About this RNA
The record is a 58-nucleotide RNA sequence from Pilibacter termitis, which matches "Ribosomal protein L13 leader" in Rfam. By type it is a cis-regulatory leader. The literature on the family includes a 1994 paper in Prog Nucleic Acid Res Mol Biol by Zengel and Lindahl, "Diverse mechanisms for regulating ribosomal protein synthesis in Escherichia coli". Pairs were carried over by alignment from the consensus structure, which was predicted with CMfinder. NCBI's taxonomy places the organism under Bacteria, Bacillati, Lactobacillales, Enterococcaceae, Pilibacter.

RNA sequence: GGUAUUGUUUACCCCAUUUUAAGGCCCCGGAAACCGAAAAAUGAAAUGUAAACAGGAA
Numbered sequence: 001g002g003u004a005u006u007g008u009u010u011a012c013c014c015c016a017u018u019u020u021a022a023g024g025c026c027c028c029g030g031a032a033a034c035c036g037a038a039a040a041a042u043g044a045a046a047u048g049u050a051a052a053c054a055g056g057a058a
Stems, first nucleotide, its partner, number of pairs: 006054007016042005023035002